[Rfam]
Nucleotides: 088
Base pairs, nucleotide, nucleotide: 002087003086004085005084006083008081009080010079011078012077013076014075016073017072018071019070020069021068022067023066024065027062028061
Number, partner (000 for none) and nucleotide at each position: 001000u002087u003086g004085u005084g006083c007000c008081u009080g010079g011078c012077u013076c014075c015000c016073u017072g018071u019070a020069u021068g022067c023066c024065a025000c026000a027062c028061g029000u030000a031000g032000a033000a034000a035000c036000c037000u038000a039000u040000c041000u042000c043000u044000u045000u046000a047000g048000u049000g050000a051000u052000g053000g054000g055000c056000u057000g058000c059000u060000c061028u062027g063000g064000g065024u066023g067022g068021c069020g070019u071018a072017u073016g074000a075014g076013g077012a078011g079010c080009c081008a082000a083006g084005c085004a086003u087002a088000c
mir-160 microRNA precursor family: an 88-nucleotide RNA from Tetracentron sinense.
The match comes from Rfam's covariance-model search (75 bits).
On this family, see Rhoades et al., Cell 2002: "Prediction of plant microRNA targets".
Rfam links the family to the GO terms RISC complex and miRNA-mediated post-transcriptional gene silencing.
Taxonomically the source falls in Tetracentron (Eukaryota, Viridiplantae, Tracheophyta, Magnoliopsida).